[Rfam]
RNA sequence: GCUGGAGGCCUAGUCAGACCGAGUCGAGAGUGUGAGACUUGGAUCACAAUAGCCUCCUAAAAGAAGAAGGAUGGAGAGAGCAGCCCUGCUUAAAGAAGAGCUGAGGGCUGACUGCGCCAUCCGACACCG
Numbered sequence: 001g002c003u004g005g006a007g008g009c010c011u012a013g014u015c016a017g018a019c020c021g022a023g024u025c026g027a028g029a030g031u032g033u034g035a036g037a038c039u040u041g042g043a044u045c046a047c048a049a050u051a052g053c054c055u056c057c058u059a060a061a062a063g064a065a066g067a068a069g070g071a072u073g074g075a076g077a078g079a080g081c082a083g084c085c086c087u088g089c090u091u092a093a094a095g096a097a098g099a100g101c102u103g104a105g106g107g108c109u110g111a112c113u114g115c116g117c118c119a120u121c122c123g124a125c126a127c128c129g
Stems, first nucleotide, its partner, number of pairs: 003059001004057006017044001019042001021040005069122004079113002081110007
Small Cajal body specific RNA 4: a 129-nucleotide RNA sequence from Piaya cayana. Its Rfam clan is "SCARNA4 clan". Taxonomically the source falls in Piaya (Eukaryota, Chordata, Dipnotetrapodomorpha, Archelosauria). Its family is annotated with RNA processing, Cajal body and nucleolus in the Gene Ontology. It is annotated as a small Cajal body RNA.